The record is a 102-nucleotide RNA from Radiobacillus deserti, which matches "Purine riboswitch aptamer" in Rfam.
Gene Ontology term of the family: purine nucleobase biosynthetic process.
Lineage of the source: Bacteria > Bacillota > Bacilli > Bacillaceae > Radiobacillus.
The family is grouped with related families in Rfam's "Purine riboswitches".
It scores 90 bits against the family's covariance model.

RNA sequence: AAAAUAAAUAGAAAAAUCCGUCGUAUAAUUUUGGGAAUAUGGCCCAUGAGUUUCUACCGGACUACCGUAAAUGGUCUGACUACGCUGGAAUGUUCAUUACUC
Numbered sequence: 001a002a003a004a005u006a007a008a009u010a011g012a013a014a015a016a017u018c019c020g021u022c023g024u025a026u027a028a029u030u031u032u033g034g035g036a037a038u039a040u041g042g043c044c045c046a047u048g049a050g051u052u053u054c055u056a057c058c059g060g061a062c063u064a065c066c067g068u069a070a071a072u073g074g075u076c077u078g079a080c081u082a083c084g085c086u087g088g089a090a091u092g093u094u095c096a097u098u099a100c101u102c
Base pairs, nucleotide, nucleotide: 018088019087020086022084023083024082025081029049030048032046033045034044035043058078059077060076061075062074063073064072